[Rfam]
RNA: MIR8024 microRNA precursor family
Organism: Solanum commersonii
RNA sequence: UUGGAAGAUUUGAAGACUUCAUCUUGCAUACUUGGAGGAUUUGAAGAUUUUAAUUUGUAUACUUGGAAGAUUUGAAGACUUCAACU
Number, nucleotide and partner (000 for none) at each position: 001u084002u083003g082004g081005a080006a000007g000008a000009u076010u075011u074012g073013a072014a071015g000016a000017c000018u067019u066020c065021a064022u000023c000024u000025u059026g058027c057028a056029u000030a000031c000032u053033u052034g051035g050036a049037g048038g000039a000040u000041u000042u000043g000044a000045a000046g000047a000048u037049u036050u035051u034052a033053a032054u000055u000056u028057g027058u026059a025060u000061a000062c000063u000064u021065g020066g019067a018068a000069g000070a000071u014072u013073u012074g011075a010076a009077g000078a000079c000080u005081u004082c003083a002084a001085c000086u000